This 106-nucleotide sequence from Miscanthus lutarioriparius belongs to the Rfam family "MIR5565 microRNA precursor family". The base pairs follow the family's consensus structure, which was predicted with RNAalifold.

[Rfam]
RNA sequence: GCAUGUAUUCAUCUCAAUCCACAUGUGUUGGAGUGGAAUGGAAUGGAAUUUAGUUUAAUUCCACUCCAAUCCACUUCAACACAUGUGGAUUGAAGUGGAUACACAU
Numbered sequence: 001g002c003a004u005g006u007a008u009u010c011a012u013c014u015c016a017a018u019c020c021a022c023a024u025g026u027g028u029u030g031g032a033g034u035g036g037a038a039u040g041g042a043a044u045g046g047a048a049u050u051u052a053g054u055u056u057a058a059u060u061c062c063a064c065u066c067c068a069a070u071c072c073a074c075u076u077c078a079a080c081a082c083a084u085g086u087g088g089a090u091u092g093a094a095g096u097g098g099a100u101a102c103a104c105a106u
Stems, first nucleotide, its partner, number of pairs: 004103009014093017033074005039068003044063002